[Rfam]
RNA sequence: UUGCGCAAUCGAUAAGUUUGUAAGCAAUCUUAGCAAUCUUAUUUCGGCGCGAUGGGCGUAAGCUUUCUCUCAGUUUCACGGCCCGGACGAAAAGUCCUACCGGCAUCGCCCAACCAGGUGAGUCGGCGCCGACGGUCCUACCGGAUCGCACCGGCACCCGGGUCCGCACUGCCCAAUCAGGCGGGCGACGAAAGCGGCGACAACACCGCCAGCACCGGACAGAUUUCCCGAGGGGGCCGCGAGGCCCCUU
Numbered sequence: 001u002u003g004c005g006c007a008a009u010c011g012a013u014a015a016g017u018u019u020g021u022a023a024g025c026a027a028u029c030u031u032a033g034c035a036a037u038c039u040u041a042u043u044u045c046g047g048c049g050c051g052a053u054g055g056g057c058g059u060a061a062g063c064u065u066u067c068u069c070u071c072a073g074u075u076u077c078a079c080g081g082c083c084c085g086g087a088c089g090a091a092a093a094g095u096c097c098u099a100c101c102g103g104c105a106u107c108g109c110c111c112a113a114c115c116a117g118g119u120g121a122g123u124c125g126g127c128g129c130c131g132a133c134g135g136u137c138c139u140a141c142c143g144g145a146u147c148g149c150a151c152c153g154g155c156a157c158c159c160g161g162g163u164c165c166g167c168a169c170u171g172c173c174c175a176a177u178c179a180g181g182c183g184g185g186c187g188a189c190g191a192a193a194g195c196g197g198c199g200a201c202a203a204c205a206c207c208g209c210c211a212g213c214a215c216c217g218g219a220c221a222g223a224u225u226u227c228c229c230g231a232g233g234g235g236g237c238c239g240c241g242a243g244g245c246c247c248c249u250u
Stems, first nucleotide, its partner, number of pairs: 001012003044056002076193001079190002081163004085097004100126005108119003128155004134147005165187003169184005194213002196210004231250008
Pseudomonas sRNA P24: a 250-nucleotide RNA from Pseudomonas sp. THAF187a. Pairs were carried over by alignment from the consensus structure, which was predicted with RNAalifold. This small RNA (sRNA) was computationally identified in the genome of the opportunistic pathogen Pseudomonas aeruginosa and its expression verified by Northern blot analysis. Rfam classes the family as a non-coding RNA gene. It scores 120 bits against the family's covariance model.